[Rfam]
RNA: Glycine riboswitch aptamer
RNA sequence: AGACACAACCCUGGAGAGAGCCAGAAAUGGACAUCGAAGAAGAAACUUAGGAAGGUUAAGUAAACACUUAAGUGCCUAGGGAAACUUUCAGAUAAAAGGACAGGAUGUAAAUA
Numbered sequence: 001a002g003a004c005a006c007a008a009c010c011c012u013g014g015a016g017a018g019a020g021c022c023a024g025a026a027a028u029g030g031a032c033a034u035c036g037a038a039g040a041a042g043a044a045a046c047u048u049a050g051g052a053a054g055g056u057u058a059a060g061u062a063a064a065c066a067c068u069u070a071a072g073u074g075c076c077u078a079g080g081g082a083a084a085c086u087u088u089c090a091g092a093u094a095a096a097a098g099g100a101c102a103g104g105a106u107g108u109a110a111a112u113a
Base pairs, nucleotide, nucleotide: 008106010104011103012102013101021030022029023028033093034092035091036089037088040087041086042085046080047079048078049077050076051075